Rfam assigns this 60-nucleotide RNA sequence from Nostoc minutum to the family "Nitrogen stress-induced RNA 1". NCBI's taxonomy places the organism under Bacteria, Bacillati, Cyanobacteriota, Cyanophyceae, Nostoc minutum. It scores 56 bits against the family's covariance model. The base pairs follow the family's consensus structure.

RNA sequence: UAGUAGAUGCACCUGAUAAUUGACCCCCCUGGUUGGCUACCACCACUAGGGGAUUUUUUA
Numbered sequence: 001u002a003g004u005a006g007a008u009g010c011a012c013c014u015g016a017u018a019a020u021u022g023a024c025c026c027c028c029c030u031g032g033u034u035g036g037c038u039a040c041c042a043c044c045a046c047u048a049g050g051g052g053a054u055u056u057u058u059u060a
Stems, first nucleotide, its partner, number of pairs: 003012002026052007034045003